The family of this 131-nucleotide RNA sequence from Firmicutes bacterium CAG:227 is "FMN riboswitch aptamer (RFN element)". On this family, see Vitreschak et al., Nucleic Acids Res 2002: "Regulation of riboflavin biosynthesis and transport genes in bacteria by transcriptional and translational attenuation". The RFN element is a highly conserved domain that is found frequently in the 5'-untranslated regions of prokaryotic mRNAs that encode for flavin mononucleotide (FMN) biosynthesis and transport proteins. The family's consensus secondary structure is taken from published work. The match comes from Rfam's covariance-model search (110 bits).

RNA sequence: AAAAAUCUUCAGGGCAGGGUGAAAUUCCCUACCGGCAGUGAUAGUCUGCGAGCCUGAAAAAAUAAAUUUGAAAGGCAUGAUUCGGUGAAAUUCCGAUACCGACAGUAAAGUCUGGAUGGAAGAAGAGAAAU
Numbered sequence: 001a002a003a004a005a006u007c008u009u010c011a012g013g014g015c016a017g018g019g020u021g022a023a024a025u026u027c028c029c030u031a032c033c034g035g036c037a038g039u040g041a042u043a044g045u046c047u048g049c050g051a052g053c054c055u056g057a058a059a060a061a062a063u064a065a066a067u068u069u070g071a072a073a074g075g076c077a078u079g080a081u082u083c084g085g086u087g088a089a090a091u092u093c094c095g096a097u098a099c100c101g102a103c104a105g106u107a108a109a110g111u112c113u114g115g116a117u118g119g120a121a122g123a124a125g126a127g128a129a130a131u
Base pairs, nucleotide, nucleotide: 006126007125008124009123010122017029018028019027031111032110033101034100035049036048037047038046044099045098054075082096083095084094085093103114104113105112